Overview:
This 115-nucleotide RNA sequence from Trichechus manatus belongs to the Rfam family "Small nucleolar RNA SNORA71". The family has 40 seed sequences and 1,805 matches in Rfam 15.1. It is annotated as an H/ACA-box small nucleolar RNA. The literature on the family includes a 1997 paper in Genes Dev by Ganot et al., "The family of box ACA small nucleolar RNAs is defined by an evolutionarily conserved secondary structure and ubiquitous sequence elements essential for RNA accumulation". Lineage of the source: Eukaryota > Gnathostomata > Teleostomi > Amniota > Trichechus manatus. The members of this family belong to the H/ACA class of snoRNAs which bind a number of proteins (including dyskerin, Gar1p and Nop10p) to form snoRNP complexes.

[Rfam]
RNA sequence: CUCUGCAUAGGAAAGUGACCCUGGGCUGCCCGUGUCCCGGUCAUUGAUAGUGCUGGGAGAGGAAUUGUUUGGAGGGUCCACUCCUGUCCCUUCCAGACCGUGAAGCUUUUUCACA
Number, nucleotide and partner (000 for none) at each position: 001c057002u056003c055004u000005g053006c052007a051008u050009a000010g000011g000012a000013a000014a045015g044016u043017g042018a041019c040020c039021c000022u000023g037024g036025g035026c034027u000028g000029c000030c000031c000032g000033u000034g026035u025036c024037c023038c000039g020040g019041u018042c017043a016044u015045u014046g000047a000048u000049a000050g008051u007052g006053c005054u000055g003056g002057g001058a000059g000060a000061g000062g000063a000064a000065u000066u000067g098068u097069u096070u095071g094072g092073a091074g090075g089076g088077u000078c000079c000080a000081c000082u000083c000084c000085u000086g000087u000088c076089c075090c074091u073092u072093c000094c071095a070096g069097a068098c067099c000100g000101u000102g000103a000104a000105g000106c000107u000108u000109u000110u000111u000112c000113a000114c000115a000